RNA sequence: UUUUUUAAAGAAAAUCUGGCCUUCCUCCAAGGGAAGGCCAAGAAAUUUUCUU
Numbered sequence: 001u002u003u004u005u006u007a008a009a010g011a012a013a014a015u016c017u018g019g020c021c022u023u024c025c026u027c028c029a030a031g032g033g034a035a036g037g038c039c040a041a042g043a044a045a046u047u048u049u050c051u052u
Stems, first nucleotide, its partner, number of pairs: 008052007015042001017040009
The record is a 52-nucleotide RNA from Lentivirus humimdef1, which matches "HIV Ribosomal frameshift signal" in Rfam. The family's RNA type in Rfam is frameshift element. Taxonomically the source falls in Lentivirus humimdef1 (Viruses, Artverviricota, Ortervirales, Lentivirus). About the family: This family represents the HIV Ribosomal frameshift signal. The sequence is in the family's curated seed alignment.